RNA sequence: GGUCAAUGAUGAGAUGUAAAAGGUCUGAUUUCCCAAGUCCCUUCCCAUUUGUUCCCUUCGGCUCCCAGCAGCCCCUGCUCUACUCCCAGCAUGCUCUAGUUGUACAUUGUUGGCCACAGGGGCUGCUGACAGAUAGGAUGACCUCACAUCCUGUGUCUGUAAGAGACCAAUGCGUCACAGUGAUGGACAUCCAACAUGACCAAUCACUAAGGAGUAUUGGGGUGUGGAGUUGGGAUUGGUAGAUCUCAAGUUUUCAUGCCGAGAAC
Numbered sequence: 001g002g003u004c005a006a007u008g009a010u011g012a013g014a015u016g017u018a019a020a021a022g023g024u025c026u027g028a029u030u031u032c033c034c035a036a037g038u039c040c041c042u043u044c045c046c047a048u049u050u051g052u053u054c055c056c057u058u059c060g061g062c063u064c065c066c067a068g069c070a071g072c073c074c075c076u077g078c079u080c081u082a083c084u085c086c087c088a089g090c091a092u093g094c095u096c097u098a099g100u101u102g103u104a105c106a107u108u109g110u111u112g113g114c115c116a117c118a119g120g121g122g123c124u125g126c127u128g129a130c131a132g133a134u135a136g137g138a139u140g141a142c143c144u145c146a147c148a149u150c151c152u153g154u155g156u157c158u159g160u161a162a163g164a165g166a167c168c169a170a171u172g173c174g175u176c177a178c179a180g181u182g183a184u185g186g187a188c189a190u191c192c193a194a195c196a197u198g199a200c201c202a203a204u205c206a207c208u209a210a211g212g213a214g215u216a217u218u219g220g221g222g223u224g225u226g227g228a229g230u231u232g233g234g235a236u237u238g239g240u241a242g243a244u245c246u247c248a249a250g251u252u253u254u255c256a257u258g259c260c261g262a263g264a265a266c
Base pairs, nucleotide, nucleotide: 001266003264004263035246037244038243039242042229043228044227045226049222062214063213064212065211066128067127068126069125070124071123072122086113087112088111089110090109091108136192137191138190139189140188142186152179153178154177155176158174159173160172161171
RNA: Small Cajal body specific RNA 6
Organism: Salmo trutta